[Rfam]
RNA: glmS glucosamine-6-phosphate activated ribozyme aptamer
RNA sequence: UAAAUAAAUAUAGCGCCUGGACUCAAAUUUUUGAGUUGACGAGGAUGGGGAGUAUCGAAAUAUUCGGCGGAUGCCCCAGUCAGUUUAAAUUCUCCUAAACUGUUUAAAAGGUAAAACACCAUAGGUGACUAUGGAAACAAAGCCUUUUUUCAAACAAUG
Numbered sequence: 001u002a003a004a005u006a007a008a009u010a011u012a013g014c015g016c017c018u019g020g021a022c023u024c025a026a027a028u029u030u031u032u033g034a035g036u037u038g039a040c041g042a043g044g045a046u047g048g049g050g051a052g053u054a055u056c057g058a059a060a061u062a063u064u065c066g067g068c069g070g071a072u073g074c075c076c077c078a079g080u081c082a083g084u085u086u087a088a089a090u091u092c093u094c095c096u097a098a099a100c101u102g103u104u105u106a107a108a109a110g111g112u113a114a115a116a117c118a119c120c121a122u123a124g125g126u127g128a129c130u131a132u133g134g135a136a137a138c139a140a141a142g143c144c145u146u147u148u149u150u151c152a153a154a155c156a157a158u159g
Stems, first nucleotide, its partner, number of pairs: 020037007046078005055067004081102006106149006119134006